[Rfam]
RNA: transfer-messenger RNA
RNA sequence: GGGGCCGACCGGUUUUGACAGCAUAGGGCAGGGUCUGUAAGCAUGUCGUGCGUUGUGUAAUUAGCACGUAAAUCUGAAUACUCAAACCAUAUAAGGCGAAUAUUCUUACGCCAUGGCUGCCUAAUCAGAGAUUAGACACCCUUUAUAGCCGCCGGGAAGGUUGCCUGUGACCGUCCCCGCCGCCGAAUCAACAAAAUACGGGAUAGGUUGUGCAACGCUGUGAUGUACGAAUGAAAAUCAAAACAGAUAGGGAAGGGGUAGGUAUGUUCCUGUCCGGCUUCGUCCCGAGACCCAAUCAGGAAAUACACAUGUAGAAAGCUUAUCGGGCAUAUGUUUGGACGCGGGUUCGACUCCCGCCGGCUCCACAA
Numbered sequence: 001g002g003g004g005c006c007g008a009c010c011g012g013u014u015u016u017g018a019c020a021g022c023a024u025a026g027g028g029c030a031g032g033g034u035c036u037g038u039a040a041g042c043a044u045g046u047c048g049u050g051c052g053u054u055g056u057g058u059a060a061u062u063a064g065c066a067c068g069u070a071a072a073u074c075u076g077a078a079u080a081c082u083c084a085a086a087c088c089a090u091a092u093a094a095g096g097c098g099a100a101u102a103u104u105c106u107u108a109c110g111c112c113a114u115g116g117c118u119g120c121c122u123a124a125u126c127a128g129a130g131a132u133u134a135g136a137c138a139c140c141c142u143u144u145a146u147a148g149c150c151g152c153c154g155g156g157a158a159g160g161u162u163g164c165c166u167g168u169g170a171c172c173g174u175c176c177c178c179g180c181c182g183c184c185g186a187a188u189c190a191a192c193a194a195a196a197u198a199c200g201g202g203a204u205a206g207g208u209u210g211u212g213c214a215a216c217g218c219u220g221u222g223a224u225g226u227a228c229g230a231a232u233g234a235a236a237a238u239c240a241a242a243a244c245a246g247a248u249a250g251g252g253a254a255g256g257g258g259u260a261g262g263u264a265u266g267u268u269c270c271u272g273u274c275c276g277g278c279u280u281c282g283u284c285c286c287g288a289g290a291c292c293c294a295a296u297c298a299g300g301a302a303a304u305a306c307a308c309a310u311g312u313a314g315a316a317a318g319c320u321u322a323u324c325g326g327g328c329a330u331a332u333g334u335u336u337g338g339a340c341g342c343g344g345g346u347u348c349g350a351c352u353c354c355c356g357c358c359g360g361c362u363c364c365a366c367a368a
Stems, first nucleotide, its partner, number of pairs: 001364007019337002021334005027328001032324003037319002042311005047068005054084002057081003115141002118138002146185001148183002153179004157174001159172002164202006206232001208230007218246004250286004255281005261275002267302003272296001341357005